The record is a 77-nucleotide RNA from Papaver somniferum, which matches "Small nucleolar RNA U49" in Rfam. The family's RNA type in Rfam is C/D-box small nucleolar RNA. Its family is annotated with RNA processing and nucleolus in the Gene Ontology. On this family, see Brown et al., RNA 2001: "Multiple snoRNA gene clusters from Arabidopsis". Rfam 15.1 lists 340 matches to the family in 152 species. The family's consensus secondary structure was predicted with CMfinder.
Nucleotides: 077
Base pairs, nucleotide, nucleotide: 014071015070032059033058034057035056036055
Number, partner (000 for none) and nucleotide at each position: 001000u002000c003000c004000c005000a006000a007000u008000g009000a010000g011000g012000a013000a014071g015070c016000g017000a018000a019000c020000c021000c022000a023000a024000a025000a026000g027000a028000u029000a030000g031000g032059a033058a034057g035056u036055g037000c038000c039000a040000u041000a042000u043000g044000a045000c046000a047000c048000u049000u050000a051000a052000a053000c054000a055036c056035a057034c058033u059032u060000a061000a062000a063000c064000a065000c066000a067000g068000c069000a070015g071014u072000u073000g074000a075000u076000u077000u